[Rfam]
Overview
Shown here is a 231-nucleotide RNA sequence from Asparagus officinalis, a member of the family "RNase MRP". Pairs were carried over by alignment from the consensus structure, which is taken from published work. RNase MRP is an enzymatically active ribonucleoprotein with two distinct roles in eukaryotes. In mitochondria it plays a direct role in the initiation of mitochondrial DNA replication.

RNA sequence: GAUGCUUAGGACAAAAUGAGCCGGUGCCUCCAACCCGGGAAAGUCCCUGGGCCGCGACCCGCAGAGUUGCGGGCCCCGUAAGGGGCUAAACCUUUGACGGUUAGCAGGCUGAGACAAGUGUGGAGCCUUGCUAACCUGGACCUAAGGUUAAUAUUGGCCAUCCAAUAUAGUUACUCACUUGAUCCAGUUACUUAAUUGGAUUAACAGAACGGGGAUUACGAUCCUAAGCGU
Numbered sequence: 001g002a003u004g005c006u007u008a009g010g011a012c013a014a015a016a017u018g019a020g021c022c023g024g025u026g027c028c029u030c031c032a033a034c035c036c037g038g039g040a041a042a043g044u045c046c047c048u049g050g051g052c053c054g055c056g057a058c059c060c061g062c063a064g065a066g067u068u069g070c071g072g073g074c075c076c077c078g079u080a081a082g083g084g085g086c087u088a089a090a091c092c093u094u095u096g097a098c099g100g101u102u103a104g105c106a107g108g109c110u111g112a113g114a115c116a117a118g119u120g121u122g123g124a125g126c127c128u129u130g131c132u133a134a135c136c137u138g139g140a141c142c143u144a145a146g147g148u149u150a151a152u153a154u155u156g157g158c159c160a161u162c163c164a165a166u167a168u169a170g171u172u173a174c175u176c177a178c179u180u181g182a183u184c185c186a187g188u189u190a191c192u193u194a195a196u197u198g199g200a201u202u203a204a205c206a207g208a209a210c211g212g213g214g215a216u217u218a219c220g221a222u223c224c225u226a227a228g229c230g231u
Base pairs, nucleotide, nucleotide: 002231003230004229005228006227007226008225009224010223011222014180015179017177018176019175022037023036041217042216045214046213047212048211060071061070062069063068072087073086074085075084076083077082089149090148091147099136100135101134102133103132104131105130106128107127108126109125116121182201183200184199185198186197187196